[Rfam]
RNA sequence: GGUUGAAGGAAAGCGCCAGCACUGCGUUUGCCCGACACGGAGCGCAGUGGACGAGGAGGAGGUUUAUCGAAGGUUCGGCGGAUGCCUCCCGGUAGCUGUAUCACUGCCGCGGAGCGCGGGAACAAAACAGCAGGGCGACCUGUUGGACAAAACCCGCGCAUGAUACACG
Numbered sequence: 001g002g003u004u005g006a007a008g009g010a011a012a013g014c015g016c017c018a019g020c021a022c023u024g025c026g027u028u029u030g031c032c033c034g035a036c037a038c039g040g041a042g043c044g045c046a047g048u049g050g051a052c053g054a055g056g057a058g059g060a061g062g063u064u065u066a067u068c069g070a071a072g073g074u075u076c077g078g079c080g081g082a083u084g085c086c087u088c089c090c091g092g093u094a095g096c097u098g099u100a101u102c103a104c105u106g107c108c109g110c111g112g113a114g115c116g117c118g119g120g121a122a123c124a125a126a127a128c129a130g131c132a133g134g135g136c137g138a139c140c141u142g143u144u145g146g147a148c149a150a151a152a153c154c155c156g157c158g159c160a161u162g163a164u165a166c167a168c169g
Stems, first nucleotide, its partner, number of pairs: 020049008029040001058089005067078004090109006114159007128145007
Shown here is a 169-nucleotide RNA sequence from Brevibacillus sp. WF146, a member of the family "glmS glucosamine-6-phosphate activated ribozyme aptamer". The organism belongs to Brevibacillus, within Bacteria. The literature on the family includes a 2004 paper in Nature by Winkler et al., "Control of gene expression by a natural metabolite-responsive ribozyme". It scores 118 bits against the family's covariance model. This entry contains a glucosamine-6-phosphate activated ribozyme that is found in the mRNA for GlmS. GlmS is an enzyme that uses fructose-6-phosphate and glutamine to generate glucosamine-6-phosphate.